[Rfam]
RNA: transfer-messenger RNA
RNA sequence: GGGGCUGAUUCAGGAUUCGACGGGAAUUUUGAAACCCGAGGAGCAUGUCGUGGGGCGGUUGGCCACGUAAAAAGCCGCAAAAAAAUAGUCGCAAACGACGAAAACUACGCACUAGCAGCUUAAUAACCUGCUGAGAGCUCUCCUGCCCUAGCUUCUGCUUGUAAGACGGGGAAUAACAGGGGAUCAAACCCAAACGAGCUAGAACGGAUUCUCCCGCCUGAGAGAUGAACUUCGAAUUAUAAUUCAGGAUAGCCAUAAGAUAGCGUGUCGGUUCGCAGUUUUACGGUGAAAUCAAAGAUCGACUAAACAUGUAGCGCCAACGGUGAACGAUUUUCGGACGGGGGUUCAAAUCCCCCCAGCUCCACCA
Numbered sequence: 001g002g003g004g005c006u007g008a009u010u011c012a013g014g015a016u017u018c019g020a021c022g023g024g025a026a027u028u029u030u031g032a033a034a035c036c037c038g039a040g041g042a043g044c045a046u047g048u049c050g051u052g053g054g055g056c057g058g059u060u061g062g063c064c065a066c067g068u069a070a071a072a073a074g075c076c077g078c079a080a081a082a083a084a085a086u087a088g089u090c091g092c093a094a095a096c097g098a099c100g101a102a103a104a105c106u107a108c109g110c111a112c113u114a115g116c117a118g119c120u121u122a123a124u125a126a127c128c129u130g131c132u133g134a135g136a137g138c139u140c141u142c143c144u145g146c147c148c149u150a151g152c153u154u155c156u157g158c159u160u161g162u163a164a165g166a167c168g169g170g171g172a173a174u175a176a177c178a179g180g181g182g183a184u185c186a187a188a189c190c191c192a193a194a195c196g197a198g199c200u201a202g203a204a205c206g207g208a209u210u211c212u213c214c215c216g217c218c219u220g221a222g223a224g225a226u227g228a229a230c231u232u233c234g235a236a237u238u239a240u241a242a243u244u245c246a247g248g249a250u251a252g253c254c255a256u257a258a259g260a261u262a263g264c265g266u267g268u269c270g271g272u273u274c275g276c277a278g279u280u281u282u283a284c285g286g287u288g289a290a291a292u293c294a295a296a297g298a299u300c301g302a303c304u305a306a307a308c309a310u311g312u313a314g315c316g317c318c319a320a321c322g323g324u325g326a327a328c329g330a331u332u333u334u335c336g337g338a339c340g341g342g343g344g345u346u347c348a349a350a351u352c353c354c355c356c357c358a359g360c361u362c363c364a365c366c367a
Stems, first nucleotide, its partner, number of pairs: 001363007021336008030327001034324003040318002044311005049067005055078006112135002115131004139183006146171004152165003157199006202233003217248005252287003256283006263276003267303007340356005